The family of this 46-nucleotide sequence from Neisseria dentiae is "PreQ1 (pre queuosine) riboswitch aptamer". It scores 48 bits against the family's covariance model. The source organism's lineage runs through Bacteria, Pseudomonadati, Pseudomonadota, Betaproteobacteria and Neisseria. Pairs were carried over by alignment from the consensus structure. From the family's description: This family is a bacterial riboswitch that binds to the metabolite preQ1, an intermediate in the biosynthesis of the modified nucleoside queuosine from GTP. One example of this riboswitch is located in the leader of the Bacillus subtilis ykvJKLM (queCDEF) operon which encodes four genes necessary for queuosine production. PreQ1 binding to the riboswitch aptamer is thought to induce premature transcription termination within the leader to down-regulate expression of these genes.

RNA sequence: UGCAUUGUGGUUCGCAAACCUCCCACAUUAAAAAAACUAAGGAACU
Numbered sequence: 001u002g003c004a005u006u007g008u009g010g011u012u013c014g015c016a017a018a019c020c021u022c023c024c025a026c027a028u029u030a031a032a033a034a035a036a037c038u039a040a041g042g043a044a045c046u
Base pairs, nucleotide, nucleotide: 006027007026008025009024010023016038

Its family is annotated with queuosine biosynthetic process in the Gene Ontology.